[Rfam]
RNA sequence: CUUAGAACUCAAGAUUAUGGGCUGAACACUAAAUAGUGUCUGGGCUGUAGGAUCAGCUUCAACUCUUCGUUGUUCCUUCAGUUUGGACUUCAAAACGCCUUUUUUAAUCUUGGGCUCCCAUUGAAAGUUUUAGGCCUUUGUCUUACCUUUCCAUC
Numbered sequence: 001c002u003u004a005g006a007a008c009u010c011a012a013g014a015u016u017a018u019g020g021g022c023u024g025a026a027c028a029c030u031a032a033a034u035a036g037u038g039u040c041u042g043g044g045c046u047g048u049a050g051g052a053u054c055a056g057c058u059u060c061a062a063c064u065c066u067u068c069g070u071u072g073u074u075c076c077u078u079c080a081g082u083u084u085g086g087a088c089u090u091c092a093a094a095a096c097g098c099c100u101u102u103u104u105u106a107a108u109c110u111u112g113g114g115c116u117c118c119c120a121u122u123g124a125a126a127g128u129u130u131u132a133g134g135c136c137u138u139u140g141u142c143u144u145a146c147c148u149u150u151c152c153a154u155c
Base pairs, nucleotide, nucleotide: 003153005151006150007149009145011144012143013142014141015140017139019137020136021135022133023132024131025130026129028128029127030126036122042118043117044116046114049111050110051109052108053107055104056103063097069091072088073087074086
Shown here is a 155-nucleotide RNA from Populus alba, a member of the family "MIR2912 microRNA precursor family". The base pairs follow the family's consensus structure, which was predicted with RNAalifold. The source organism's lineage runs through Eukaryota, Malpighiales, Salicaceae, Saliceae and Populus.